Rfam assigns this 349-nucleotide RNA sequence from Desulfosudis oleivorans to the family "transfer-messenger RNA". It is annotated as a non-coding RNA gene.
RNA sequence: GGGGGCGAAACGGCUUCGACGGGGAUAAAGAUGCUCAGGUUGCAUGUCGAGUUCCGCCAUCUCGUAAAACGGCGGGCCUAAACAUAAUCGCAGACGAUUAUAACUACGCAGUAGCCGCUUAAGGGCUACUCGUUCUUCGGUUUCUUUCUCGCGGAUUCCGACAGAACGUCAUUUUAGCGGGAUAGCGAACCUUUGAUGCCUGUAGAAGGAACGCGAAAUUUACAGACUAUCCAUGUAACUCUUUUGCCUGAACAGUGGUUACAUGGAGAAAUUCAAAGUUCAGGAUAAGCAUGUAGACGCCUGUGUUGAAUGUUUCCGGACGCGGGUUCAACUCCCGCCGCCUCCACCA
Dot-bracket structure: (((((((............((((((((.....((.(((((..((((([[[[.((((((..]]]]......)))))).................................(((((((.(....))))))))((((((((((..(((.[[[[[[)))..)))).))))))........]]]]]]..(((..((((....[.[[[...))))..)))........]]].]..((((((((((..((....[[[[..))..))))))))))...........]]..]]....))))).....))))).))....))))))))...(((((.......))))))))))))....